[Rfam]
RNA sequence: GGAACCGUAUGAAAUCAGCUUGUCUCUUUGGUAAUCAACCUGGACCUCGGUCUGGGUGCACUUGCCAGUGAGUACAGCCUGCGACAAUUCGGCGCGAAGGAAAAAAUCGGGGGGAAUGUGGCCUCAGCUUCGGUUGUGGUGUUAUAGCCCUUUGAAAAAUACUUUGCUCUGGAUUGAGGACUGCAGCGAGCCAUUUGGGAUAGACUGUGGGCGCUUUGUUUGGACUGGGAGGAAAUUUCUAUCUCUGGUAGUGUUCUUUCAGUUUGAGCAAACUCGCCUACUUUUCUUUUUUCUCGCUUAGGUCGUAGGCAUAAUGAUUUUAUAUGACCCGUCUUGAAACACGG
Numbered sequence: 001g002g003a004a005c006c007g008u009a010u011g012a013a014a015u016c017a018g019c020u021u022g023u024c025u026c027u028u029u030g031g032u033a034a035u036c037a038a039c040c041u042g043g044a045c046c047u048c049g050g051u052c053u054g055g056g057u058g059c060a061c062u063u064g065c066c067a068g069u070g071a072g073u074a075c076a077g078c079c080u081g082c083g084a085c086a087a088u089u090c091g092g093c094g095c096g097a098a099g100g101a102a103a104a105a106a107u108c109g110g111g112g113g114g115a116a117u118g119u120g121g122c123c124u125c126a127g128c129u130u131c132g133g134u135u136g137u138g139g140u141g142u143u144a145u146a147g148c149c150c151u152u153u154g155a156a157a158a159a160u161a162c163u164u165u166g167c168u169c170u171g172g173a174u175u176g177a178g179g180a181c182u183g184c185a186g187c188g189a190g191c192c193a194u195u196u197g198g199g200a201u202a203g204a205c206u207g208u209g210g211g212c213g214c215u216u217u218g219u220u221u222g223g224a225c226u227g228g229g230a231g232g233a234a235a236u237u238u239c240u241a242u243c244u245c246u247g248g249u250a251g252u253g254u255u256c257u258u259u260c261a262g263u264u265u266g267a268g269c270a271a272a273c274u275c276g277c278c279u280a281c282u283u284u285u286c287u288u289u290u291u292u293c294u295c296g297c298u299u300a301g302g303u304c305g306u307a308g309g310c311a312u313a314a315u316g317a318u319u320u321u322a323u324a325u326g327a328c329c330c331g332u333c334u335u336g337a338a339a340c341a342c343g344g
Base pairs, nucleotide, nucleotide: 006326007325008324009323010322011321012320013319014318015317021314025309026308027307029305030304031303032302329344330343331342332341

A member of the RNA family "Archaeal large subunit ribosomal RNA" from Absidia repens, 344 nucleotides of a longer RNA.
On this family, see Cannone et al., BMC Bioinformatics 2002: "The comparative RNA web (CRW) site: an online database of comparative sequence and structure information for ribosomal, intron, and other RNAs".
It scores 1521 bits against the family's covariance model.